[Rfam]
RNA sequence: GUGAGGACGACCUCGCACCUUCAUGACACCGGUGGGGACGGCCCUG
Numbered sequence: 001g002u003g004a005g006g007a008c009g010a011c012c013u014c015g016c017a018c019c020u021u022c023a024u025g026a027c028a029c030c031g032g033u034g035g036g037g038a039c040g041g042c043c044c045u046g
Stems, first nucleotide, its partner, number of pairs: 001016006033046005

Shown here is a 46-nucleotide RNA from Microvirga mediterraneensis, a member of the family "Guanidine-II riboswitch aptamer (mini-ykkC)".
Simpler in structure and has fewer highly conserved nucleotide positions than the ykkC-yxkD leader.
The family's consensus secondary structure is taken from published work.
The organism belongs to Microvirga, within Bacteria.
The literature on the family includes a 2007 paper in Nucleic Acids Res by Weinberg et al., "Identification of 22 candidate structured RNAs in bacteria using the CMfinder comparative genomics pipeline".